Rfam assigns this 143-nucleotide sequence from Caldanaerobius fijiensis to the family "c-di-AMP riboswitch aptamer (ydaO/yuaA leader)".
[Rfam]
RNA sequence: AUUAAUAAUUAGCCUAAUCCAUACUUUGUAUGGAGCGGGGGAUAAAUUUUGGGGUGAAUCCGCUUUAGAAUUUUCUAAAGCGGUAGGGUUUGCUCUUUACCGAACCCGUCAACUAACCUCGUAGGCUAAAAGAGAAAGGAUGG
Numbered sequence: 001a002u003u004a005a006u007a008a009u010u011a012g013c014c015u016a017a018u019c020c021a022u023a024c025u026u027u028g029u030a031u032g033g034a035g036c037g038g039g040g041g042a043u044a045a046a047u048u049u050u051g052g053g054g055u056g057a058a059u060c061c062g063c064u065u066u067a068g069a070a071u072u073u074u075c076u077a078a079a080g081c082g083g084u085a086g087g088g089u090u091u092g093c094u095c096u097u098u099a100c101c102g103a104a105c106c107c108g109u110c111a112a113c114u115a116a117c118c119u120c121g122u123a124g125g126c127u128a129a130a131a132g133a134g135a136a137a138g139g140a141u142g143g
Base pairs, nucleotide, nucleotide: 011127012126013125014124018034019033020032021031022030023029024028035122036121037120038119039118040117043051044050052107053106054105060083061082062081063080064079065078066077067076068075069074086101087100089099
Overview:
It scores 86 bits against the family's covariance model. Its family is annotated with regulation of gene expression and cyclic-di-AMP binding in the Gene Ontology. On this family, see Barrick et al., Proc Natl Acad Sci U S A 2004: "New RNA motifs suggest an expanded scope for riboswitches in bacterial genetic control".